[Rfam]
RNA sequence: ACUGGAGGAUUCAUCGGACUGAGUCUGAACAGUGAGACUCAGAUGACAAUAGCCUCCUAAAAGAAAAGGGACGGAGAGAGCAGUCCUACUUACAGAAAAGCAAAGGGCUGACUGCGCCAUCUGACACUU
Numbered sequence: 001a002c003u004g005g006a007g008g009a010u011u012c013a014u015c016g017g018a019c020u021g022a023g024u025c026u027g028a029a030c031a032g033u034g035a036g037a038c039u040c041a042g043a044u045g046a047c048a049a050u051a052g053c054c055u056c057c058u059a060a061a062a063g064a065a066a067a068g069g070g071a072c073g074g075a076g077a078g079a080g081c082a083g084u085c086c087u088a089c090u091u092a093c094a095g096a097a098a099a100g101c102a103a104a105g106g107g108c109u110g111a112c113u114g115c116g117c118c119a120u121c122u123g124a125c126a127c128u129u
Stems, first nucleotide, its partner, number of pairs: 003059001004057005017044001019042001021040006068122003079113002081110007091102001093100001

Record summary: Small Cajal body specific RNA 4: a 129-nucleotide sequence from Phaethon lepturus. The match comes from Rfam's covariance-model search (84 bits). The family's consensus secondary structure was predicted with RNAfold. From the family's description: scaRNAs are a specific class of small nuclear RNAs which localise to the Cajal bodies and guide the modification of RNA polymerase II transcribed spliceosomal RNAs U1, U2, U4, U5 and U12. ACA26 belongs to the H/ACA box class of guide RNAs as it has the predicted hairpin-hinge-hairpin-tail structure, conserved H/ACA-box motifs and is found associated with GAR1.